[Rfam]
RNA: L17 ribosomal protein downstream element
Organism: Enterococcus lacertideformus
RNA sequence: AGAGUGUUAUGAUGUUGGAAGUUAACUCUUCCGAGUCUAGCUCAGCGCUACUCCUCAAGUCCUUUGGCGUGGGG
Dot-bracket structure: .((((.....(((...(((((......)))))..)))..)))).........(((((.(((....))).)))))